This 78-nucleotide sequence from Gossypium anomalum belongs to the Rfam family "Class I RNA from Dictyostelium". Rfam classes the family as a non-coding RNA gene. Dictyostelium Class I RNA was first reported for Aspegren et al. 2004 in Dictyostelium discoideum.
[Rfam]
RNA sequence: GCACCCAGUACAACAAAAAAAAAAUUUUUUUUUUGCUCUCUAAAAAUACGAGUUUUAAAAAAAAAAUUUUGGGUGCUG
Numbered sequence: 001g002c003a004c005c006c007a008g009u010a011c012a013a014c015a016a017a018a019a020a021a022a023a024a025u026u027u028u029u030u031u032u033u034u035g036c037u038c039u040c041u042a043a044a045a046a047u048a049c050g051a052g053u054u055u056u057a058a059a060a061a062a063a064a065a066a067u068u069u070u071g072g073g074u075g076c077u078g
Stems, first nucleotide, its partner, number of pairs: 001076008